[Rfam]
About this RNA:
The family of this 121-nucleotide RNA sequence from Sinorhizobium sp. BG8 is "Rhizobiales sRNA Atu_C8".
RNA sequence: GAAAAAUAUCGCGAUCAUUCUUGUGGUGGGACGGCGCAUGGGCAGGGUGGUGUAACCACCCGGCGAAAGCACCCAUGCGCGGUAAGCAGGCUCCUCUCGGGGCCUUUUUUUAUGCCCUCGA
Numbered sequence: 001g002a003a004a005a006a007u008a009u010c011g012c013g014a015u016c017a018u019u020c021u022u023g024u025g026g027u028g029g030g031a032c033g034g035c036g037c038a039u040g041g042g043c044a045g046g047g048u049g050g051u052g053u054a055a056c057c058a059c060c061c062g063g064c065g066a067a068a069g070c071a072c073c074c075a076u077g078c079g080c081g082g083u084a085a086g087c088a089g090g091c092u093c094c095u096c097u098c099g100g101g102g103c104c105u106u107u108u109u110u111u112a113u114g115c116c117c118u119c120g121a
Stems, first nucleotide, its partner, number of pairs: 007028001009026001029117002032114001034080009045061006063070002086106001088105007

It is annotated as a small RNA.